Notes: A member of the RNA family "terC RNA" from Mesorhizobium sp. Root172, 59 nucleotides long. By type it is a cis-regulatory element. A search with the family's covariance model found it, with a score of 57 bits. Taxonomically the source falls in Mesorhizobium (Bacteria, Pseudomonadati, Hyphomicrobiales, Phyllobacteriaceae).
RNA sequence: GGUGCGGGCCGGGCCCCUCUGACUGUCGCCAAUGGCGACCGUGAUGUCGGACCGCUUUA
Numbered sequence: 001g002g003u004g005c006g007g008g009c010c011g012g013g014c015c016c017c018u019c020u021g022a023c024u025g026u027c028g029c030c031a032a033u034g035g036c037g038a039c040c041g042u043g044a045u046g047u048c049g050g051a052c053c054g055c056u057u058u059a
Base pairs, nucleotide, nucleotide: 006053007052009050010049011048012047022042023041025039026038027037028036029035